[Rfam]
RNA sequence: AAGUGUUGUCAUGUCACCCGCUGCUAUGGUAACUCUGUAGGCAUUAGUUCGACAUAAGCACAGUGAACAAACCGAUUAUGAAAGCCUUUACCCAAGUGAUUAGCCUAGUCGUGAUUAGCGUGGUGGUGAUUAUUAUUCCACCGUGCGGGGCUGCACUUGAACGAAUAAAGGCUUAGAAAACAAGCCGGAAUCGCAAGAGAACCCCCGCACCGUCAGGUCCGGGGGUUUUUUUAUGCCAAGAGAAAAGCAAAAUGAGGAGCAGAGAAUGAGUAACGGAAUGAAGUCCUGCAUUUCACGCAGUAA
Numbered sequence: 001a002a003g004u005g006u007u008g009u010c011a012u013g014u015c016a017c018c019c020g021c022u023g024c025u026a027u028g029g030u031a032a033c034u035c036u037g038u039a040g041g042c043a044u045u046a047g048u049u050c051g052a053c054a055u056a057a058g059c060a061c062a063g064u065g066a067a068c069a070a071a072c073c074g075a076u077u078a079u080g081a082a083a084g085c086c087u088u089u090a091c092c093c094a095a096g097u098g099a100u101u102a103g104c105c106u107a108g109u110c111g112u113g114a115u116u117a118g119c120g121u122g123g124u125g126g127u128g129a130u131u132a133u134u135a136u137u138c139c140a141c142c143g144u145g146c147g148g149g150g151c152u153g154c155a156c157u158u159g160a161a162c163g164a165a166u167a168a169a170g171g172c173u174u175a176g177a178a179a180a181c182a183a184g185c186c187g188g189a190a191u192c193g194c195a196a197g198a199g200a201a202c203c204c205c206c207g208c209a210c211c212g213u214c215a216g217g218u219c220c221g222g223g224g225g226u227u228u229u230u231u232u233a234u235g236c237c238a239a240g241a242g243a244a245a246a247g248c249a250a251a252a253u254g255a256g257g258a259g260c261a262g263a264g265a266a267u268g269a270g271u272a273a274c275g276g277a278a279u280g281a282a283g284u285c286c287u288g289c290a291u292u293u294c295a296c297g298c299a300g301u302a303a
Stems, first nucleotide, its partner, number of pairs: 005033008013024001037076002040073002044067002047064002050058001086257003090253001100240002103236002106233003110120003122142005128137003143162002146159004163192002170186005198229010209218003259289004264284001266279002
The family of this 303-nucleotide sequence from Chania multitudinisentens is "Soft rot Enterobacteriaceae Rev 39 5'UTR". A search with the family's covariance model found it, with a score of 160 bits. NCBI's taxonomy places the organism under Bacteria, Pseudomonadota, Yersiniaceae, Chania, Chania multitudinisentens. For this family Rfam cites "Discovery and profiling of small RNAs responsive to stress conditions in the plant pathogen Pectobacterium atrosepticum" (Kwenda et al., BMC Genomics, 2016). About the family: From bacteria cultured under starvation conditions. The family's RNA type in Rfam is cis-regulatory element.